[Rfam]
Nucleotides: 224
Stems, first nucleotide, its partner, number of pairs: 001067006010046002013043002021034001070210003074206001075088004091204005098197004106140002110134008121217005142186009154177002157174002160172002162169002
Number, partner (000 for none) and nucleotide at each position: 001067g002066u003065a004064a005063a006062c007000a008000a009000c010046c011045c012000a013043c014042c015000a016000c017000c018000a019000a020000u021034u022000a023000u024000u025000g026000c027000u028000a029000a030000g031000a032000g033000c034021a035000a036000u037000a038000u039000g040000g041000u042014g043013g044000g045011g046010g047000c048000u049000u050000u051000u052000a053000a054000a055000g056000c057000c058000c059000a060000a061000a062006g063005u064004u065003u066002a067001c068000c069000c070210g071209a072208c073000u074206a075088a076087g077086u078085g079000u080000u081000a082000a083000a084000u085078c086077a087076c088075u089000a090000c091204g092203a093202u094201u095200u096000u097000u098197a099196g100195g101194u102000c103000a104000u105000c106140c107139u108000a109000c110134c111133u112132g113131c114130a115129a116128a117127u118000g119000c120000g121217u122216a123215g124214c125213c126000a127117g128116u129115u130114u131113g132112u133111a134110g135000c136000u137000c138000u139107a140106g141000g142186g143185u144184c145183a146182a147181c148180a149179g150178u151000u152000a153000a154177a155176c156000a157174g158173g159000u160172c161171u162169a163168a164000u165000g166000g167000g168163u169162u170000a171161a172160g173158c174157c175000a176155g177154u178150g179149c180148u181147g182146u183145u184144g185143a186142c187000a188000u189000a190000a191000a192000a193000a194101g195100c196099c197098u198000u199000u200095a201094a202093a203092u204091c205000a206074u207000u208072g209071u210070c211000c212000a213125g214124g215123c216122u217121a218000a219000c220000a221000u222000u223000a224000c